[Rfam]
Rfam assigns this 137-nucleotide sequence from Pogona vitticeps to the family "Small Cajal body specific RNA 3". The organism belongs to Pogona, within Eukaryota. On this family, see Huttenhofer et al., EMBO J 2001: "RNomics: an experimental approach that identifies 201 candidates for novel, small, non-messenger RNAs in mouse". A search with the family's covariance model found it, with a score of 62 bits. The family's consensus secondary structure was predicted with RNAalifold.
RNA sequence: AUUGGAAGCUGAAUAGCCCAGCAGUGCUGGCAAAUGAAAUAUCUUUUGUUUCAACUUUCAGACUUUCUAGAUUAAAGUGAAGGUUGCUGUCUGGUUUAGAACGGUCAGUUAAUCCACAUUAUUCCACUUUGCACAAU
Number, nucleotide and partner (000 for none) at each position: 001a000002u000003u000004g067005g066006a065007a000008g000009c061010u060011g059012a058013a000014u000015a000016g000017c000018c000019c000020a000021g000022c000023a000024g000025u053026g052027c000028u000029g050030g049031c048032a000033a000034a000035u000036g045037a044038a000039a000040u000041a000042u000043c000044u037045u036046u000047u000048g031049u030050u029051u000052c026053a025054a000055c000056u000057u000058u012059c011060a010061g009062a000063c000064u000065u006066u005067c004068u000069a000070g000071a000072u000073u000074a000075a000076a000077g000078u000079g130080a129081a128082g127083g000084u000085u000086g000087c000088u000089g119090u118091c000092u000093g115094g114095u000096u112097u111098a110099g109100a000101a000102c000103g000104g000105u000106c000107a000108g000109u099110u098111a097112a096113u000114c094115c093116a000117c000118a090119u089120u000121a000122u000123u000124c000125c000126a000127c082128u081129u080130u079131g000132c000133a000134c000135a000136a000137u000